[Rfam]
RNA sequence: GGGAAACGAGGACGGGGCUGGGGAGAUGAGCCCCCCCAAGUCCUCCUCCAGCAAGUAGGCUCA
Numbered sequence: 001g002g003g004a005a006a007c008g009a010g011g012a013c014g015g016g017g018c019u020g021g022g023g024a025g026a027u028g029a030g031c032c033c034c035c036c037c038a039a040g041u042c043c044u045c046c047u048c049c050a051g052c053a054a055g056u057a058g059g060c061u062c063a
Base pairs, nucleotide, nucleotide: 014044015043016042017041018040019039021037022036023035028062029061030060031059032058
RNA: Ma3 gene ribosomal frameshift signal
Organism: Suricata suricatta